Rfam assigns this 102-nucleotide RNA from Bacillus sp. SJS to the family "Purine riboswitch aptamer". It scores 85 bits against the family's covariance model. Lineage of the source: Bacteria > Bacillati > Bacillota > Bacillaceae > Bacillus.
RNA sequence: AAAUUAAACGAUUUUCACCUUCAUAUAUCCUCGAUAAUAUGGUUCGAGAGUCUCUACCGGAUUACCUUAAAUGAUCUGACUAUGAAGGCAGGAUACAGUCUG
Numbered sequence: 001a002a003a004u005u006a007a008a009c010g011a012u013u014u015u016c017a018c019c020u021u022c023a024u025a026u027a028u029c030c031u032c033g034a035u036a037a038u039a040u041g042g043u044u045c046g047a048g049a050g051u052c053u054c055u056a057c058c059g060g061a062u063u064a065c066c067u068u069a070a071a072u073g074a075u076c077u078g079a080c081u082a083u084g085a086a087g088g089c090a091g092g093a094u095a096c097a098g099u100c101u102g
Stems, first nucleotide, its partner, number of pairs: 018088008030048005058078007